[Rfam]
Shown here is a 71-nucleotide RNA sequence from Owenia fusiformis, a member of the family "mir-34 microRNA precursor family". NCBI's taxonomy places the organism under Eukaryota, Protostomia, Annelida, Oweniida, Owenia. From the family's description: Human mir-34a was discovered computationally and later experimentally verified. The mature sequence is excised from the 5' arm of the hairpin. On this family, see Lim et al., Science 2003: "Vertebrate microRNA genes". Its family is annotated with miRNA-mediated post-transcriptional gene silencing and RISC complex in the Gene Ontology. The match comes from Rfam's covariance-model search (56 bits).
RNA sequence: GGUGCUGUGGCAGUGUGGUUAGCUGGUUGUUUAUAUCUGAAUACAACCUCUAUCAACACUGCCAUAGGUCU
Dot-bracket structure: .(..((..((.(((((.(.(((..((((((............)))))).))).).))))).))..))..).